Shown here is a 45-nucleotide RNA from Psychrobacillus soli, a member of the family "PreQ1 (pre queuosine) riboswitch aptamer". Gene Ontology term of the family: queuosine biosynthetic process. For this family Rfam cites "Identification of four genes necessary for biosynthesis of the modified nucleoside queuosine" (Reader et al., J Biol Chem, 2004). The pairing is the family consensus, mapped onto this sequence. About the family: This family is a bacterial riboswitch that binds to the metabolite preQ1, an intermediate in the biosynthesis of the modified nucleoside queuosine from GTP. One example of this riboswitch is located in the leader of the Bacillus subtilis ykvJKLM (queCDEF) operon which encodes four genes necessary for queuosine production. PreQ1 binding to the riboswitch aptamer is thought to induce premature transcription termination within the leader to down-regulate expression of these genes.

RNA sequence: AUUUACGUGGUUCGAGAACCUCCCACGGAAAAAAACUAAGGAGAA
Numbered sequence: 001a002u003u004u005a006c007g008u009g010g011u012u013c014g015a016g017a018a019c020c021u022c023c024c025a026c027g028g029a030a031a032a033a034a035a036c037u038a039a040g041g042a043g044a045a
Stems, first nucleotide, its partner, number of pairs: 006027005016037001